[Rfam]
RNA sequence: CUUGAGCGACCCGAGCCACAGCGGCUCGCCGUCCCGGUCCCGCCCGUAGGUGGCGACCAGCGCGCGGGCCUC
Numbered sequence: 001c002u003u004g005a006g007c008g009a010c011c012c013g014a015g016c017c018a019c020a021g022c023g024g025c026u027c028g029c030c031g032u033c034c035c036g037g038u039c040c041c042g043c044c045c046g047u048a049g050g051u052g053g054c055g056a057c058c059a060g061c062g063c064g065c066g067g068g069c070c071u072c
Base pairs, nucleotide, nucleotide: 014026015025016024017023032067033066035062036061044053045052046051

ASpks TB sRNA: a 72-nucleotide RNA from Actinosynnema mirum. The match comes from Rfam's covariance-model search (60 bits). The source organism's lineage runs through Bacteria, Bacillati, Actinomycetota, Pseudonocardiales and Actinosynnema mirum. The literature on the family includes a 2009 paper in Mol Microbiol by Arnvig and Young, "Identification of small RNAs in Mycobacterium tuberculosis". The family's RNA type in Rfam is antisense RNA. The family's consensus secondary structure is taken from published work.